[Rfam]
RNA: Small nucleolar RNA Z118/Z121/Z120
RNA sequence: UGUUUGCUGUGAUGAGAUCACAAGGACGGUAUCUGAGAAGGUCUCUAAGGAGUGCUACUUCAUUGAUUUUACAUCCUAAACUGAUCAAAUUUUCUGAGCAAACG
Numbered sequence: 001u002g003u004u005u006g007c008u009g010u011g012a013u014g015a016g017a018u019c020a021c022a023a024g025g026a027c028g029g030u031a032u033c034u035g036a037g038a039a040g041g042u043c044u045c046u047a048a049g050g051a052g053u054g055c056u057a058c059u060u061c062a063u064u065g066a067u068u069u070u071a072c073a074u075c076c077u078a079a080a081c082u083g084a085u086c087a088a089a090u091u092u093u094c095u096g097a098g099c100a101a102a103c104g
Base pairs, nucleotide, nucleotide: 001104002103003102004101005100006099007098039060040059041058